[Rfam]
RNA sequence: AGUUCAAUUAAAGCGCCUGUACAAGUGAAGAGGUUAUGUGUUUGUAAUUUAAGGUUUAUAACAGAAAUCUUAAUAGACACGAUAAUCGAAGUUUGUAGACGAGGAGGGUAGUUAUCGAACCAUCGGCGGAUGCUAUCCCGGAUGUGGCUCAUUCGUUAACUUAUUAAGGAAAACAUUAGGGUAACCUGGUGCACAAAGUUAAUAAGAUAGCCAAAA
Numbered sequence: 001a002g003u004u005c006a007a008u009u010a011a012a013g014c015g016c017c018u019g020u021a022c023a024a025g026u027g028a029a030g031a032g033g034u035u036a037u038g039u040g041u042u043u044g045u046a047a048u049u050u051a052a053g054g055u056u057u058a059u060a061a062c063a064g065a066a067a068u069c070u071u072a073a074u075a076g077a078c079a080c081g082a083u084a085a086u087c088g089a090a091g092u093u094u095g096u097a098g099a100c101g102a103g104g105a106g107g108g109u110a111g112u113u114a115u116c117g118a119a120c121c122a123u124c125g126g127c128g129g130a131u132g133c134u135a136u137c138c139c140g141g142a143u144g145u146g147g148c149u150c151a152u153u154c155g156u157u158a159a160c161u162u163a164u165u166a167a168g169g170a171a172a173a174c175a176u177u178a179g180g181g182u183a184a185c186c187u188g189g190u191g192c193a194c195a196a197a198g199u200u201a202a203u204a205a206g207a208u209a210g211c212c213a214a215a216a
Stems, first nucleotide, its partner, number of pairs: 020097007029086001106138005115126004139155006160206007174191007

Rfam assigns this 216-nucleotide sequence from Staphylococcus saprophyticus to the family "glmS glucosamine-6-phosphate activated ribozyme aptamer". For this family Rfam cites "Evidence for preorganization of the glmS ribozyme ligand binding pocket" (Hampel and Tinsley, Biochemistry, 2006). Rfam's curators put it in the seed alignment. It is annotated as a riboswitch. Gene Ontology terms of the family: regulation of gene expression and catalytic activity.